[Rfam]
RNA sequence: GGCCCGAUGCCACUUCGCCGGUAGCGAAAAAGAAAAAAAAAGCAAUGACCGGCGAUGCUAUGAUUGGACCGAAAUAAAUCUCAUGUUUCGCUUUCUGAUAGGAACCUGUGGAUCUGAAUUUGAUCUACGUCGCCGUUUUAGGCGAUUACAUUA
Numbered sequence: 001g002g003c004c005c006g007a008u009g010c011c012a013c014u015u016c017g018c019c020g021g022u023a024g025c026g027a028a029a030a031a032g033a034a035a036a037a038a039a040a041a042g043c044a045a046u047g048a049c050c051g052g053c054g055a056u057g058c059u060a061u062g063a064u065u066g067g068a069c070c071g072a073a074a075u076a077a078a079u080c081u082c083a084u085g086u087u088u089c090g091c092u093u094u095c096u097g098a099u100a101g102g103a104a105c106c107u108g109u110g111g112a113u114c115u116g117a118a119u120u121u122g123a124u125c126u127a128c129g130u131c132g133c134c135g136u137u138u139u140a141g142g143c144g145a146u147u148a149c150a151u152u153a
Stems, first nucleotide, its partner, number of pairs: 002069001004067005009061001013057001015055004020050003024043002088145005101134002107129002110126005
RNA: Small nucleolar RNA snoR2/U65